The family of this 133-nucleotide RNA sequence from Lynx pardinus is "Small nucleolar RNA SNORA72".
The organism belongs to Lynx, within Eukaryota.
The family's consensus secondary structure was predicted with PFOLD.
For this family Rfam cites "The family of box ACA small nucleolar RNAs is defined by an evolutionarily conserved secondary structure and ubiquitous sequence elements essential for RNA accumulation" (Ganot et al., Genes Dev, 1997).
By type it is an H/ACA-box small nucleolar RNA.
Gene Ontology terms of the family: nucleolus and RNA processing.
RNA sequence: CAGCAAAUAUUCCUGCUGCUCUCAUUUUGUAAAUAAUCAAGACAGGCUAAACAUUUGCUAUAUUAAGAUUAUGCAUGUCUCCCCAAACUUAGUUCUUUCCCUGGAUCUGGUUUUAUCAAUGCUGGUGAUUCAU
Numbered sequence: 001c002a003g004c005a006a007a008u009a010u011u012c013c014u015g016c017u018g019c020u021c022u023c024a025u026u027u028u029g030u031a032a033a034u035a036a037u038c039a040a041g042a043c044a045g046g047c048u049a050a051a052c053a054u055u056u057g058c059u060a061u062a063u064u065a066a067g068a069u070u071a072u073g074c075a076u077g078u079c080u081c082c083c084c085a086a087a088c089u090u091a092g093u094u095c096u097u098u099c100c101c102u103g104g105a106u107c108u109g110g111u112u113u114u115a116u117c118a119a120u121g122c123u124g125g126u127g128a129u130u131c132a133u
Stems, first nucleotide, its partner, number of pairs: 003058003016045003020041001022039001024037003068126004073122002083110003087106001089104004